[Rfam]
RNA sequence: GAGCGCUGGGAGACGGGGCCGUGUCACUGUAUGAGAUUCGUAGUCUUUCUCACAGUGAACCGGUCUCUUUUCCCAGCCCUCA
Number, nucleotide and partner (000 for none) at each position: 001g000002a000003g000004c000005g000006c076007u075008g074009g073010g072011a000012g000013a000014c000015g067016g066017g065018g064019c063020c062021g061022u000023g000024u000025c057026a056027c055028u054029g053030u052031a000032u000033g051034a050035g049036a000037u000038u000039c000040g000041u000042a000043g000044u000045c000046u000047u000048u000049c035050u034051c033052a030053c029054a028055g027056u026057g025058a000059a000060c000061c021062g020063g019064u018065c017066u016067c015068u000069u000070u000071u000072c010073c009074c008075a007076g006077c000078c000079c000080u000081c000082a000